[Rfam]
RNA sequence: CCCUUGGAGCGUUACAUCAAACGAAAGUAGUCAAGCUAUUUAAUUGGCGACAAAAUCGGACGCAAUGAGUAGGGAA
Numbered sequence: 001c002c003c004u005u006g007g008a009g010c011g012u013u014a015c016a017u018c019a020a021a022c023g024a025a026a027g028u029a030g031u032c033a034a035g036c037u038a039u040u041u042a043a044u045u046g047g048c049g050a051c052a053a054a055a056u057c058g059g060a061c062g063c064a065a066u067g068a069g070u071a072g073g074g075a076a
Base pairs, nucleotide, nucleotide: 001074002073003072004071009063010062011061012060013059022058023057024056030051031050032049035048036047037046038045
RNA: RAGATH-18 RNA